[Rfam]
RNA sequence: AUACUUACCUGGCACUGGGAAGUCCUUGAUCAUGAAGGAGGCUUCCCCGAGUUGAGACCAUCCAUUGCACUCACGGUGGUCGACGCUCGGCCACGCCCGCAAUUAGCGGGUGUUGGGGUGCGUAAUUUUUGGUAGUGGGGGCCUGCGUCCGCGCGGCCCUUA
Numbered sequence: 001a002u003a004c005u006u007a008c009c010u011g012g013c014a015c016u017g018g019g020a021a022g023u024c025c026u027u028g029a030u031c032a033u034g035a036a037g038g039a040g041g042c043u044u045c046c047c048c049g050a051g052u053u054g055a056g057a058c059c060a061u062c063c064a065u066u067g068c069a070c071u072c073a074c075g076g077u078g079g080u081c082g083a084c085g086c087u088c089g090g091c092c093a094c095g096c097c098c099g100c101a102a103u104u105a106g107c108g109g110g111u112g113u114u115g116g117g118g119u120g121c122g123u124a125a126u127u128u129u130u131g132g133u134a135g136u137g138g139g140g141g142c143c144u145g146c147g148u149c150c151g152c153g154c155g156g157c158c159c160u161u162a
Base pairs, nucleotide, nucleotide: 012121013120014119015118017047018046019045020044021043024041025040026039027038049088050087051086053085056081057080059078060077061076062075091116092115093114094112095111096110098108099107137161138160139159140158141157144155145154146153147152
Dot-bracket structure: ...........((((.(((((..((((..........)))).))))).(((.(..((.((((............)))).))...))))..((((((.((.......)).))).))).))))...............(((((..((((....)))).))))).
Description: U1 spliceosomal RNA: a 162-nucleotide RNA sequence from Nephila pilipes. The family has 100 seed sequences and 40,184 matches in Rfam 15.1. Clan: U1 clan. It is annotated as a spliceosomal small nuclear RNA. A search with the family's covariance model found it, with a score of 116 bits.